Shown here is a 72-nucleotide RNA, a member of the family "int-alpA RNA". Acidobacteria (1 example), Planctomycetes (1 example), Proteobacteria. The match comes from Rfam's covariance-model search (46 bits).
[Rfam]
RNA sequence: AAACUGGAUAGGGCAGGUAGGACCCGAAAAGCCGUAACCUUGACGGCCUGUCGGUUGAUUUCUAUAUCAAGG
Numbered sequence: 001a002a003a004c005u006g007g008a009u010a011g012g013g014c015a016g017g018u019a020g021g022a023c024c025c026g027a028a029a030a031g032c033c034g035u036a037a038c039c040u041u042g043a044c045g046g047c048c049u050g051u052c053g054g055u056u057g058a059u060u061u062c063u064a065u066a067u068c069a070a071g072g
Stems, first nucleotide, its partner, number of pairs: 002056006011025003031047004038072006